RNA sequence: CUACAAACCUCCAGCAUGCUUGGGUCUGGAGUGGCCCUCUGUGUGUUCCAACAGCGCUUGCAAGAGCAAUUUUAAAACAGUUUGAAGCCUUACUCUACACCAUCCACAGAGCAAGGCUAUAGAAAUUUCAGACAAUC
Numbered sequence: 001c002u003a004c005a006a007a008c009c010u011c012c013a014g015c016a017u018g019c020u021u022g023g024g025u026c027u028g029g030a031g032u033g034g035c036c037c038u039c040u041g042u043g044u045g046u047u048c049c050a051a052c053a054g055c056g057c058u059u060g061c062a063a064g065a066g067c068a069a070u071u072u073u074a075a076a077a078c079a080g081u082u083u084g085a086a087g088c089c090u091u092a093c094u095c096u097a098c099a100c101c102a103u104c105c106a107c108a109g110a111g112c113a114a115g116g117c118u119a120u121a122g123a124a125a126u127u128u129c130a131g132a133c134a135a136u137c
Stems, first nucleotide, its partner, number of pairs: 004060003008056001017045003022037005073130001075128003088116004093111001095109002
RNA: Small nucleolar RNA SNORA9